[Rfam]
RNA sequence: CGGACCAUAAGGCAGCACGCUGCCGAAAUCGUCUGCAAUCCGGUCAGCAUCACGUAAUGUGGUGUGACGAUUAUUCAAACAGCUGCCCCUCCGCAGCGCCUCA
Numbered sequence: 001c002g003g004a005c006c007a008u009a010a011g012g013c014a015g016c017a018c019g020c021u022g023c024c025g026a027a028a029u030c031g032u033c034u035g036c037a038a039u040c041c042g043g044u045c046a047g048c049a050u051c052a053c054g055u056a057a058u059g060u061g062g063u064g065u066g067a068c069g070a071u072u073a074u075u076c077a078a079a080c081a082g083c084u085g086c087c088c089c090u091c092c093g094c095a096g097c098g099c100c101u102c103a
Stems, first nucleotide, its partner, number of pairs: 011024005029070005048064006080098001082097005
Dot-bracket structure: ..........(((((....)))))....(((((..............((((((.....)))))).))))).........(.(((((......)))))).....

A member of the RNA family "DUF3577 RNA", 103 nucleotides long. It is annotated as a cis-regulatory element. Rfam's curators put it in the seed alignment. The base pairs follow the family's consensus structure, which is taken from published work.